[Rfam]
Nucleotides: 192
Base pairs, nucleotide, nucleotide: 022043023042024041025040026039027038029036054116055115056114057113058112064104065103066102067101117134118133119132120131121130122129138182139181140180141179142178143177144176153166154165155164156163157162
Number, partner (000 for none) and nucleotide at each position: 001000c002000c003000c004000c005000c006000a007000u008000c009000a010000a011000a012000a013000g014000c015000g016000c017000c018000a019000g020000c021000g022043c023042c024041u025040g026039u027038c028000u029036c030000c031000c032000a033000g034000g035000g036029g037000a038027g039026a040025c041024a042023g043022g044000a045000c046000g047000a048000c049000g050000a051000g052000g053000a054116g055115a056114a057113g058112g059000g060000a061000g062000u063000a064104u065103c066102g067101a068000a069000a070000g071000g072000a073000c074000g075000g076000c077000g078000g079000a080000u081000u082000c083000c084000c085000c086000c087000g088000c089000c090000g091000g092000c093000c094000c095000c096000a097000a098000a099000a100000u101067u102066c103065g104064g105000c106000g107000g108000a109000u110000g111000c112058c113057c114056u115055u116054c117134c118133g119132u120131a121130c122129c123000c124000c125000u126000c127000c128000g129122g130121g131120u132119g133118c134117g135000u136000g137000a138182c139181a140180c141179a142178g143177c144176g145000g146000g147000c148000a149000a150000a151000u152000a153166u154165g155164c156163g157162g158000g159000c160000g161000a162157c163156c164155g165154c166153a167000a168000a169000a170000c171000a172000g173000a174000g175000a176144c177143g178142c179141u180140g181139u182138g183000a184000c185000c186000g187000g188000a189000u190000g191000a192000c

glmS glucosamine-6-phosphate activated ribozyme aptamer: a 192-nucleotide RNA sequence from Pseudoflavonifractor sp. An184. This entry contains a glucosamine-6-phosphate activated ribozyme that is found in the mRNA for GlmS. GlmS is an enzyme that uses fructose-6-phosphate and glutamine to generate glucosamine-6-phosphate. By type it is a riboswitch. It scores 72 bits against the family's covariance model.